The family of this 86-nucleotide RNA from Paenibacillus prosopidis is "c-di-GMP-I riboswitch aptamer". It scores 79 bits against the family's covariance model. A reference for the family is Weinberg et al. (2007), "Identification of 22 candidate structured RNAs in bacteria using the CMfinder comparative genomics pipeline", Nucleic Acids Res. The organism belongs to Paenibacillus, within Bacteria.
[Rfam]
RNA sequence: GUUUGAAAAGAGCAAACUUGCCGAAAGGCUGGGACGCAAAGCCGCGGGUCUACAGUUUCUCAAACGAUGACAGCCGGGCUGCCAAA
Numbered sequence: 001g002u003u004u005g006a007a008a009a010g011a012g013c014a015a016a017c018u019u020g021c022c023g024a025a026a027g028g029c030u031g032g033g034a035c036g037c038a039a040a041g042c043c044g045c046g047g048g049u050c051u052a053c054a055g056u057u058u059c060u061c062a063a064a065c066g067a068u069g070a071c072a073g074c075c076g077g078g079c080u081g082c083c084a085a086a
Stems, first nucleotide, its partner, number of pairs: 012037002017032002020029003040080004045076003048071003055065004